The record is a 114-nucleotide sequence from Fulvimarina manganoxydans, which matches "TPP riboswitch aptamer (THI element)" in Rfam. The family has 115 seed sequences and 16,130 matches in Rfam 15.1. The base pairs follow the family's consensus structure, which is taken from published work.

[Rfam]
RNA sequence: ACGCUCACAAGGGGGUGCCCUCGCGCGCAAAUGCGACGGGCUGAGAGGCGGGUUCGCCAACCCCUCGAACCUGAUCCGGGUCAUGCCGGCGGAGGGAUUGCGAGCCAUGACGCG
Numbered sequence: 001a002c003g004c005u006c007a008c009a010a011g012g013g014g015g016u017g018c019c020c021u022c023g024c025g026c027g028c029a030a031a032u033g034c035g036a037c038g039g040g041c042u043g044a045g046a047g048g049c050g051g052g053u054u055c056g057c058c059a060a061c062c063c064c065u066c067g068a069a070c071c072u073g074a075u076c077c078g079g080g081u082c083a084u085g086c087c088g089g090c091g092g093a094g095g096g097a098u099u100g101c102g103a104g105c106c107a108u109g110a111c112g113c114g
Stems, first nucleotide, its partner, number of pairs: 006102001008100003011064004017041004048057003070095003076089004